[Rfam]
RNA sequence: GGUUGGACAAAUAUAUGUUUGAUUCCAAGAGAAAUUCAGGUUUCUGGGGUGGGAAACU
Numbered sequence: 001g002g003u004u005g006g007a008c009a010a011a012u013a014u015a016u017g018u019u020u021g022a023u024u025c026c027a028a029g030a031g032a033a034a035u036u037c038a039g040g041u042u043u044c045u046g047g048g049g050u051g052g053g054a055a056a057c058u
Stems, first nucleotide, its partner, number of pairs: 003028003006023001008021004039058007

A member of the RNA family "Na+ riboswitch aptamer (DUF1646)", 58 nucleotides long. On this family, see White et al., Nat Chem Biol 2022: "Na(+) riboswitches regulate genes for diverse physiological processes in bacteria". It is one of the family's seed sequences. Gene Ontology terms of the family: sodium ion binding and regulation of gene expression.